Small nucleolar RNA SNORA75: a 137-nucleotide RNA from Carlito syrichta. U23 belongs to the H/ACA class of snoRNAs. snoRNAs bind a number of proteins (including dyskerin, Gar1p and Nop10p in the case of the H/ACA class) to form snoRNP complexes. This class are thought to guide the sites of modification of uridines to pseudouridines by forming direct base pairing interactions with substrate RNAs. Targets include ribosomal and spliceosomal RNAs as well as the Trypanosoma spliced leader RNA (SL RNA) as possibly other, still unknown cellular RNAs. U23 can direct the pseudouridylation of U97 in human 18S rRNA (Bachellerie JP, Ganot, P unpublished data). U23 is encoded within intron 12 of the nucleolin gene in human, mouse, rat chicken, and Xenopus laevis.
[Rfam]
RNA sequence: AUCUUCUCAUUGAGUUCCUUUCUGUCUGUUGAUGGCAGUUUAUGGAUUCGCACAAGAAAAAGAGAGAAUGCACAGAGCUAGUAUCAUUUUACAUUCUAUCUUUACAGAGGUAUAUUUGGCUGUUUUGUGAGACAUUC
Number, nucleotide and partner (000 for none) at each position: 001a000002u000003c000004u058005u057006c056007u055008c000009a000010u000011u000012g000013a000014g051015u050016u046017c045018c044019u000020u000021u000022c038023u037024g036025u035026c034027u000028g000029u000030u000031g000032a000033u000034g026035g025036c024037a023038g022039u000040u000041u000042a000043u000044g018045g017046a016047u000048u000049c000050g015051c014052a000053c000054a000055a007056g006057a005058a004059a000060a000061a000062g000063a000064g000065a000066g000067a000068a000069u000070g000071c129072a128073c127074a126075g125076a000077g000078c000079u000080a000081g000082u000083a000084u000085c000086a000087u000088u000089u000090u000091a000092c110093a000094u109095u108096c107097u106098a000099u000100c000101u000102u000103u000104a000105c000106a097107g096108a095109g094110g092111u000112a000113u000114a000115u000116u000117u000118g000119g000120c000121u000122g000123u000124u000125u075126u074127g073128u072129g071130a000131g000132a000133c000134a000135u000136u000137c000

A search with the family's covariance model found it, with a score of 98 bits.
Its family is annotated with RNA processing and nucleolus in the Gene Ontology.
NCBI's taxonomy places the organism under Eukaryota, Sarcopterygii, Boreoeutheria, Haplorrhini, Carlito.